Rfam assigns this 138-nucleotide RNA from Paenibacillus faecis to the family "c-di-AMP riboswitch aptamer (ydaO/yuaA leader)". A search with the family's covariance model found it, with a score of 64 bits. Rfam links the family to the GO terms cyclic-di-AMP binding and regulation of gene expression.
RNA sequence: CAACUAGAUCAGCCGAAUUCCCGGCACCCGGGAAACGGGGGAACCAUUUUGGGUGAAUUGAUUACCGAUACAUAGGGAUCAUAGGGAACCUUCAACCGAAUCCUCAAGCUAACCUCGCAGGCCUUGGAAGGAGAACUU
Numbered sequence: 001c002a003a004c005u006a007g008a009u010c011a012g013c014c015g016a017a018u019u020c021c022c023g024g025c026a027c028c029c030g031g032g033a034a035a036c037g038g039g040g041g042a043a044c045c046a047u048u049u050u051g052g053g054u055g056a057a058u059u060g061a062u063u064a065c066c067g068a069u070a071c072a073u074a075g076g077g078a079u080c081a082u083a084g085g086g087a088a089c090c091u092u093c094a095a096c097c098g099a100a101u102c103c104u105c106a107a108g109c110u111a112a113c114c115u116c117g118c119a120g121g122c123c124u125u126g127g128a129a130g131g132a133g134a135a136c137u138u
Stems, first nucleotide, its partner, number of pairs: 012122003018034007036117005051103003059081004084097002